RNA: Glycine riboswitch aptamer
Organism: Candidatus Kurthia intestinigallinarum
RNA sequence: CUCUGGAGAGCGCUACUUCGGGUAGCCACCCACGAUGACAGCCAGUUUUCUGGUUAAACUUUCAGGUGCAUGGACAGAG
Number, nucleotide and partner (000 for none) at each position: 001c079002u078003c077004u076005g075006g000007a000008g000009a000010g000011c000012g026013c025014u024015a023016c000017u000018u000019c000020g000021g000022g000023u015024a014025g013026c012027c000028a067029c066030c065031c000032a062033c000034g000035a061036u000037g059038a000039c000040a000041g054042c053043c000044a000045g000046u000047u000048u000049u000050c000051u000052g000053g042054u041055u000056a000057a000058a000059c037060u000061u035062u032063c000064a000065g030066g029067u028068g000069c000070a000071u000072g000073g000074a000075c005076a004077g003078a002079g001